[Rfam]
RNA sequence: GUAGAAUUCUUGUGUGUCGGUGUCAUCGUUUGAGAUAUGUUAACUCUGUCGAGAUGAUGCCGCCUUUAGAGGAUUCUCUCUUCACCCAAAUUCGGCUUUUAGAACCAAGCCAGUGCGAAACGGCUACUCGGGC
Numbered sequence: 001g002u003a004g005a006a007u008u009c010u011u012g013u014g015u016g017u018c019g020g021u022g023u024c025a026u027c028g029u030u031u032g033a034g035a036u037a038u039g040u041u042a043a044c045u046c047u048g049u050c051g052a053g054a055u056g057a058u059g060c061c062g063c064c065u066u067u068a069g070a071g072g073a074u075u076c077u078c079u080c081u082u083c084a085c086c087c088a089a090a091u092u093c094g095g096c097u098u099u100u101a102g103a104a105c106c107a108a109g110c111c112a113g114u115g116c117g118a119a120a121c122g123g124c125u126a127c128u129c130g131g132g133c
Base pairs, nucleotide, nucleotide: 003077004076006074007073008072009071010070018062019061020060021059022058024056025055026054027053034050035049036048037047092113094111095110096109097108098107

The family of this 133-nucleotide RNA sequence is "purD RNA motif". The literature on the family includes a 2007 paper in Nucleic Acids Res by Weinberg et al., "Identification of 22 candidate structured RNAs in bacteria using the CMfinder comparative genomics pipeline". Its family is annotated with regulation of gene expression in the Gene Ontology. Pairs were carried over by alignment from the consensus structure, which is taken from published work. The family's RNA type in Rfam is cis-regulatory element.